The family of this 587-nucleotide part of an RNA from Sulfuricella denitrificans is "Bacterial large subunit ribosomal RNA". It scores 2832 bits against the family's covariance model. The base pairs follow the family's consensus structure, which is taken from published work.

RNA sequence: CCCGCUGCUAGACGGAAAGACCCCGUGCACCUUUACUGUAGCUUUACAUUGGACUUUGAACAUAUCUGUGUAGGAUAGGUGGGAGGCUUUGAAGUCGGGACGCUAGUUCCGAUGGAGCCGACGUUGAAAUACCACCCUGAUGUGUUUGAGGUUCUAACCUAGGUCCAUUAUCUGGAUCGGGGACCGUGUAUGGUAGGCAGUUUGACUGGGGCGGUCUCCUCCCAAAGAGUAACGGAGGAGUACGAAGGUAACCUAGGUACGGUCGGAAAUCGUGCUGAUAGUGCAAUGGCAUAAGGUUGCUUAACUGCGAGACGGACAGGUCGAGCAGGUGCGAAAGCAGGUCAUAGUGAUCCGGUGGUUCUGUAUGGAAGGGCCAUCGCUCAACGGAUAAAAGGUACGCCGGGGAUAACAGGCUGAUUCCCCCCAAGAGUUCAUAUCGACGGGGGAGUUUGGCACCUCGAUGUCGGCUCAUCACAUCCUGGGGCUGUAGCCGGUCCCAAGGGUAUGGCUGUUCGCCAUUUAAAGUGGUACGUGAGCUGGGUUUAAAACGUCGUGAGACAGUUUGGUCCCUAUCUGCAGUGGGCGUU
Numbered sequence: 001c002c003c004g005c006u007g008c009u010a011g012a013c014g015g016a017a018a019g020a021c022c023c024c025g026u027g028c029a030c031c032u033u034u035a036c037u038g039u040a041g042c043u044u045u046a047c048a049u050u051g052g053a054c055u056u057u058g059a060a061c062a063u064a065u066c067u068g069u070g071u072a073g074g075a076u077a078g079g080u081g082g083g084a085g086g087c088u089u090u091g092a093a094g095u096c097g098g099g100a101c102g103c104u105a106g107u108u109c110c111g112a113u114g115g116a117g118c119c120g121a122c123g124u125u126g127a128a129a130u131a132c133c134a135c136c137c138u139g140a141u142g143u144g145u146u147u148g149a150g151g152u153u154c155u156a157a158c159c160u161a162g163g164u165c166c167a168u169u170a171u172c173u174g175g176a177u178c179g180g181g182g183a184c185c186g187u188g189u190a191u192g193g194u195a196g197g198c199a200g201u202u203u204g205a206c207u208g209g210g211g212c213g214g215u216c217u218c219c220u221c222c223c224a225a226a227g228a229g230u231a232a233c234g235g236a237g238g239a240g241u242a243c244g245a246a247g248g249u250a251a252c253c254u255a256g257g258u259a260c261g262g263u264c265g266g267a268a269a270u271c272g273u274g275c276u277g278a279u280a281g282u283g284c285a286a287u288g289g290c291a292u293a294a295g296g297u298u299g300c301u302u303a304a305c306u307g308c309g310a311g312a313c314g315g316a317c318a319g320g321u322c323g324a325g326c327a328g329g330u331g332c333g334a335a336a337g338c339a340g341g342u343c344a345u346a347g348u349g350a351u352c353c354g355g356u357g358g359u360u361c362u363g364u365a366u367g368g369a370a371g372g373g374c375c376a377u378c379g380c381u382c383a384a385c386g387g388a389u390a391a392a393a394g395g396u397a398c399g400c401c402g403g404g405g406a407u408a409a410c411a412g413g414c415u416g417a418u419u420c421c422c423c424c425c426a427a428g429a430g431u432u433c434a435u436a437u438c439g440a441c442g443g444g445g446g447a448g449u450u451u452g453g454c455a456c457c458u459c460g461a462u463g464u465c466g467g468c469u470c471a472u473c474a475c476a477u478c479c480u481g482g483g484g485c486u487g488u489a490g491c492c493g494g495u496c497c498c499a500a501g502g503g504u505a506u507g508g509c510u511g512u513u514c515g516c517c518a519u520u521u522a523a524a525g526u527g528g529u530a531c532g533u534g535a536g537c538u539g540g541g542u543u544u545a546a547a548a549c550g551u552c553g554u555g556a557g558a559c560a561g562u563u564u565g566g567u568c569c570c571u572a573u574c575u576g577c578a579g580u581g582g583g584c585g586u587u
Base pairs, nucleotide, nucleotide: 001583002582003581004580005579006578007577008576010575011574012573014570015569022404023403024402025401027400028399029396030395031394032393033392035201036200037199038198042193043192045190046189047188048187051154052153053152054151055150056149057148058147059146060145061144062143063142064141065140066139068137078136079135080134081133082132085119086118087117094113095112096111097110098109099108100107101106158181159180160179162178163177164176165175166174167173204216205215206214207213217239218238219237220236221235222234240385242342243341248300249299250298251297252296253295254280255279257275258274259273260272261271262270281290282289305328306327307326308325311322312321313320330339331338332337353379354378355377356376357375358374359373361372362371413454414453415452417451418448419447420446421445422444423443424442428438429437465540466538467537468536469535470532471529472528473527474526475525478503479502481498482497483496484495485494486493505519506518507517508516509515546564547563548562549561550559551558552557
The organism belongs to Sulfuricella denitrificans, within Bacteria.